[Rfam]
RNA sequence: CCCGCGACAGGACGGAAAGACCCCGUGAACCUUUACUAUAGCCUGAUAUUGAAUUUUAGCAUUCCCUGUGUAGGAUAGGUGGGAGGCACUGAACAGGAGGCGCCAGCCUUCUGGGAGCCAACCUUGAAAUACCACCCUCGGUCUGUUGAGAUUCUAACCCCAGGCCGUUAGCCGGCUGGGGGACCGUAUUUGGUGGGUAGUUUGACUGGGGCGGUCACCUCCUAAAGAGUAACGGAGGUGUCCCAAGGUCUCCUCAGUGUGUUUGGAAAUCACACUAAAGAGUAUAAGGGCAUAAGGAGGCUUGACUGUGAGAGAGACAUCUCGAGCAGAUGCGAAAGCAGGGCCUAGUGAUCCGGCGGUAGCUGGUGGAUGUGCCGUCGCUCAUCGGACAAAAGGUACUCCGGGGAUAACAGGCUGAUCUCCCCCAAGAGUCCACAUCGACGGGGAGGUUUGGCACCUCGAUGUCGGCUCGUCGCAUCCUGGGGCUGAAGCAGGUCCCAAGGGUUUGGCUGUUCGCCAAUUAAAGCGGUACGCGAGCUGGGUUUAGAACGUCGUGAGACAGUUCGGUCCCUAUCCGUCGCGGGCGUG
Numbered sequence: 001c002c003c004g005c006g007a008c009a010g011g012a013c014g015g016a017a018a019g020a021c022c023c024c025g026u027g028a029a030c031c032u033u034u035a036c037u038a039u040a041g042c043c044u045g046a047u048a049u050u051g052a053a054u055u056u057u058a059g060c061a062u063u064c065c066c067u068g069u070g071u072a073g074g075a076u077a078g079g080u081g082g083g084a085g086g087c088a089c090u091g092a093a094c095a096g097g098a099g100g101c102g103c104c105a106g107c108c109u110u111c112u113g114g115g116a117g118c119c120a121a122c123c124u125u126g127a128a129a130u131a132c133c134a135c136c137c138u139c140g141g142u143c144u145g146u147u148g149a150g151a152u153u154c155u156a157a158c159c160c161c162a163g164g165c166c167g168u169u170a171g172c173c174g175g176c177u178g179g180g181g182g183a184c185c186g187u188a189u190u191u192g193g194u195g196g197g198u199a200g201u202u203u204g205a206c207u208g209g210g211g212c213g214g215u216c217a218c219c220u221c222c223u224a225a226a227g228a229g230u231a232a233c234g235g236a237g238g239u240g241u242c243c244c245a246a247g248g249u250c251u252c253c254u255c256a257g258u259g260u261g262u263u264u265g266g267a268a269a270u271c272a273c274a275c276u277a278a279a280g281a282g283u284a285u286a287a288g289g290g291c292a293u294a295a296g297g298a299g300g301c302u303u304g305a306c307u308g309u310g311a312g313a314g315a316g317a318c319a320u321c322u323c324g325a326g327c328a329g330a331u332g333c334g335a336a337a338g339c340a341g342g343g344c345c346u347a348g349u350g351a352u353c354c355g356g357c358g359g360u361a362g363c364u365g366g367u368g369g370a371u372g373u374g375c376c377g378u379c380g381c382u383c384a385u386c387g388g389a390c391a392a393a394a395g396g397u398a399c400u401c402c403g404g405g406g407a408u409a410a411c412a413g414g415c416u417g418a419u420c421u422c423c424c425c426c427a428a429g430a431g432u433c434c435a436c437a438u439c440g441a442c443g444g445g446g447a448g449g450u451u452u453g454g455c456a457c458c459u460c461g462a463u464g465u466c467g468g469c470u471c472g473u474c475g476c477a478u479c480c481u482g483g484g485g486c487u488g489a490a491g492c493a494g495g496u497c498c499c500a501a502g503g504g505u506u507u508g509g510c511u512g513u514u515c516g517c518c519a520a521u522u523a524a525a526g527c528g529g530u531a532c533g534c535g536a537g538c539u540g541g542g543u544u545u546a547g548a549a550c551g552u553c554g555u556g557a558g559a560c561a562g563u564u565c566g567g568u569c570c571c572u573a574u575c576c577g578u579c580g581c582g583g584g585c586g587u588g
Stems, first nucleotide, its partner, number of pairs: 001584008010576003014571002022405004027401002029397005035201004042193002045190004051154011064141002068137001078136005085119003094113008158181003163177005204216004217239006240386001242343002248301006254281002257275005282291002306329004312323003331340003354380007362373002414455003418452001419449007429439002466541001467539004471533001472530005479504002482499006506520005547565004551560003
Background:
Rfam assigns this 588-nucleotide part of an RNA from an uncultured Atribacterota bacterium to the family "Bacterial large subunit ribosomal RNA".